[Rfam]
The record is an 88-nucleotide RNA sequence from Salmonella enterica, which matches "CopA-like RNA" in Rfam.
The family's RNA type in Rfam is antisense RNA.

RNA sequence: AUAGCCUGAUUGGUGGCUAUACAGUUUAGGUAAGCCCCGGUAAUCUUCUUCGUCGCCAAACAUUGAAAGAUUAUCGGGGUUUUGUCUU
Dot-bracket structure: (((((..........))))).......(((.((((((((((((((((...................))))))))))))))))...)))

NCBI's taxonomy places the organism under Bacteria, Pseudomonadati, Salmonella enterica, Salmonella enterica subsp. enterica, Salmonella enterica subsp. enterica serovar Saintpaul. Rfam describes the family as follows. In several groups of bacterial plasmids, antisense RNAs regulate copy number through inhibition of replication initiator protein synthesis. These RNAs are characterised by a long hairpin structure interrupted by several unpaired residues or bulged loops. In plasmid R1, the inhibitory complex between the antisense RNA (CopA) and its target mRNA (CopT) is characterised by a four-way junction structure and a side-by-side helical alignment. Rfam's curators put it in the seed alignment.